A member of the RNA family "Streptomyces RNA 6925" from Streptomyces mashuensis, 129 nucleotides long.

RNA sequence: CGAGUGGGGCCGUCCGGGAUGCCUCGUCCAAAGGGUCCGGAUCGGCUCUGGUUGGACCUCCUCGCCUUUGCAGAGGCGGGAGCGUCGCUGUGGUUGGCGCCUGAGAGUUACCGCUCUCGGGCGCCAGCU
Numbered sequence: 001c002g003a004g005u006g007g008g009g010c011c012g013u014c015c016g017g018g019a020u021g022c023c024u025c026g027u028c029c030a031a032a033g034g035g036u037c038c039g040g041a042u043c044g045g046c047u048c049u050g051g052u053u054g055g056a057c058c059u060c061c062u063c064g065c066c067u068u069u070g071c072a073g074a075g076g077c078g079g080g081a082g083c084g085u086c087g088c089u090g091u092g093g094u095u096g097g098c099g100c101c102u103g104a105g106a107g108u109u110a111c112c113g114c115u116c117u118c119g120g121g122c123g124c125c126a127g128c129u
Stems, first nucleotide, its partner, number of pairs: 001090001006049002010045003013041005022034002051086001053084002061080008095126014
Rfam describes the family as follows. Identified by deep sequencing of transcriptome at the end of exponential growth phase. A reference for the family is Vockenhuber et al. (2011), "Deep sequencing-based identification of small non-coding RNAs in Streptomyces coelicolor", RNA Biol. By type it is a small RNA. The family has 4 seed sequences and 63 matches in Rfam 15.1.